RNA: M-box riboswitch aptamer (ykoK leader)
Organism: Phytoactinopolyspora alkaliphila
RNA sequence: UGGGUGUCCCGUUAGGUGAGGCUCCUGAGCAAGUACGUGUCUGCUGCCCGGAAAGAUCGAGAGAUUCCAACGGGUUGAACAGGCCGUGGCCGAAUCAAGGUCCGGCUUAACGCAGACUGGCGGUCGUCGGCCGUCUAGAUGCUCAGUGCUGAAGCUCUGACGUUGGGAACACGCC
Numbered sequence: 001u002g003g004g005u006g007u008c009c010c011g012u013u014a015g016g017u018g019a020g021g022c023u024c025c026u027g028a029g030c031a032a033g034u035a036c037g038u039g040u041c042u043g044c045u046g047c048c049c050g051g052a053a054a055g056a057u058c059g060a061g062a063g064a065u066u067c068c069a070a071c072g073g074g075u076u077g078a079a080c081a082g083g084c085c086g087u088g089g090c091c092g093a094a095u096c097a098a099g100g101u102c103c104g105g106c107u108u109a110a111c112g113c114a115g116a117c118u119g120g121c122g123g124u125c126g127u128c129g130g131c132c133g134u135c136u137a138g139a140u141g142c143u144c145a146g147u148g149c150u151g152a153a154g155c156u157c158u159g160a161c162g163u164u165g166g167g168a169a170c171a172c173g174c175c
Stems, first nucleotide, its partner, number of pairs: 005171003009167002011161002013098001015156003020150003025146007039117001041115004046075005055066004082107004089101003119132003